The record is a 118-nucleotide RNA from Rousettus aegyptiacus, which matches "Small nucleolar RNA SNORA25" in Rfam.
[Rfam]
RNA sequence: AGGUCAUUUCUAAGAGAGCUUGUGGGACAAAAAUCAGAAGCUGUGACCAAAGAUUGAAGUUCUCCAUAGGAUAUAAUAGUCACUCAAUAGUACUAUGUUUUCCUGAGAAGAUAUAAGA
Numbered sequence: 001a002g003g004u005c006a007u008u009u010c011u012a013a014g015a016g017a018g019c020u021u022g023u024g025g026g027a028c029a030a031a032a033a034u035c036a037g038a039a040g041c042u043g044u045g046a047c048c049a050a051a052g053a054u055u056g057a058a059g060u061u062c063u064c065c066a067u068a069g070g071a072u073a074u075a076a077u078a079g080u081c082a083c084u085c086a087a088u089a090g091u092a093c094u095a096u097g098u099u100u101u102c103c104u105g106a107g108a109a110g111a112u113a114u115a116a117g118a
Stems, first nucleotide, its partner, number of pairs: 002048006018041004023037001026035002061111003065107001068104004076096004082091003
The base pairs follow the family's consensus structure, which was predicted with RNAfold. A search with the family's covariance model found it, with a score of 98 bits. Rfam classes the family as an H/ACA-box small nucleolar RNA.